[Rfam]
RNA sequence: GAUCAGCAAAGACGGGGAAUGCGCAGACAUUCAUCGGAACUCCCGGCAAAAGGCUUGCAAAGGUGAUUUCCCUUUC
Numbered sequence: 001g002a003u004c005a006g007c008a009a010a011g012a013c014g015g016g017g018a019a020u021g022c023g024c025a026g027a028c029a030u031u032c033a034u035c036g037g038a039a040c041u042c043c044c045g046g047c048a049a050a051a052g053g054c055u056u057g058c059a060a061a062g063g064u065g066a067u068u069u070c071c072c073u074u075u076c
Stems, first nucleotide, its partner, number of pairs: 011047001013045004017032005
Rfam assigns this 76-nucleotide RNA to the family "HTH-XRE RNA". The sequence is in the family's curated seed alignment. By type it is a cis-regulatory element.